[Rfam]
RNA: RT-3 RNA
RNA sequence: CAUCGUCGCUCCAGCGUCGCCCAUGUAUGGGCAUUGCUGCCGACGAAAGGACGGAGCCUCGGCAAAAGCUGUCUAUAUAUAGGCAGGAAAGCGGAAACAUGACAAGGGUGCAGUCUAUCAUAGGAGAGUAGAUGCAGCAAUGCAGGUGAAAGCCUUAACGACUGC
Numbered sequence: 001c002a003u004c005g006u007c008g009c010u011c012c013a014g015c016g017u018c019g020c021c022c023a024u025g026u027a028u029g030g031g032c033a034u035u036g037c038u039g040c041c042g043a044c045g046a047a048a049g050g051a052c053g054g055a056g057c058c059u060c061g062g063c064a065a066a067a068g069c070u071g072u073c074u075a076u077a078u079a080u081a082g083g084c085a086g087g088a089a090a091g092c093g094g095a096a097a098c099a100u101g102a103c104a105a106g107g108g109u110g111c112a113g114u115c116u117a118u119c120a121u122a123g124g125a126g127a128g129u130a131g132a133u134g135c136a137g138c139a140a141u142g143c144a145g146g147u148g149a150a151a152g153c154c155u156u157a158a159c160g161a162c163u164g165c
Stems, first nucleotide, its partner, number of pairs: 003046005012039005019032005049057001059095002062092002069086007110165005121157004133144003
Dot-bracket structure: ..(((((....(((((..(((((....)))))..)))))..)))))..(.......).((.((.....(((((((....)))))))....)).))..............(((((......((((........(((......))).........))))...)))))